Description:
The family of this 106-nucleotide sequence from Alteribacter keqinensis is "SAM riboswitch aptamer (S box leader)". The match comes from Rfam's covariance-model search (96 bits). Taxonomically the source falls in Alteribacter (Bacteria, Bacillati, Caryophanales, Bacillaceae).
RNA sequence: CUCUUAUUGAGAGUGGUGGAGGGACUGGCCCGAUGAAACCCGGCAACCGAUCAUUCAUUGAUUGUGGUGCCAAUUCCAGCAAAGCUGAGUCUUUGAGAAAUAAGAG
Numbered sequence: 001c002u003c004u005u006a007u008u009g010a011g012a013g014u015g016g017u018g019g020a021g022g023g024a025c026u027g028g029c030c031c032g033a034u035g036a037a038a039c040c041c042g043g044c045a046a047c048c049g050a051u052c053a054u055u056c057a058u059u060g061a062u063u064g065u066g067g068u069g070c071c072a073a074u075u076c077c078a079g080c081a082a083a084g085c086u087g088a089g090u091c092u093u094u095g096a097g098a099a100a101u102a103a104g105a106g
Stems, first nucleotide, its partner, number of pairs: 001106008013041001015040003021031003025079004042071004047067002049063004075098001080095005
Dot-bracket structure: ((((((((....(.(((...(((.[[[[)))......))))((((.((((((.......))))..))))))...(]]]](((((......)))))..)))))))))